[Rfam]
A member of the RNA family "glmS glucosamine-6-phosphate activated ribozyme aptamer" from Sarcina ventriculi, 151 nucleotides long.
RNA sequence: GUAAAAAUAAAAGCGCCAGAGCUCUAAAAUUAAGAGUUGACGAGGAUGAGGAGUAUCGAAUUUUCGGCGGAUACCUCACGGUAAGACACUAUCGUAAAAGUUGGACAAAACUUAAAAGUGAUUUUAAGGACAAAGCCAAUAAGGUGUUAUA
Numbered sequence: 001g002u003a004a005a006a007a008u009a010a011a012a013g014c015g016c017c018a019g020a021g022c023u024c025u026a027a028a029a030u031u032a033a034g035a036g037u038u039g040a041c042g043a044g045g046a047u048g049a050g051g052a053g054u055a056u057c058g059a060a061u062u063u064u065c066g067g068c069g070g071a072u073a074c075c076u077c078a079c080g081g082u083a084a085g086a087c088a089c090u091a092u093c094g095u096a097a098a099a100g101u102u103g104g105a106c107a108a109a110a111c112u113u114a115a116a117a118g119u120g121a122u123u124u125u126a127a128g129g130a131c132a133a134a135g136c137c138a139a140u141a142a143g144g145u146g147u148u149a150u151a
Base pairs, nucleotide, nucleotide: 020038021037022036023035024034025033027031047078048077049076050075051074056067057066058065059064079094080093081092082091083090100140101139102138103137104136111128112127113126114125115124116123117122
Source information
The match comes from Rfam's covariance-model search (108 bits).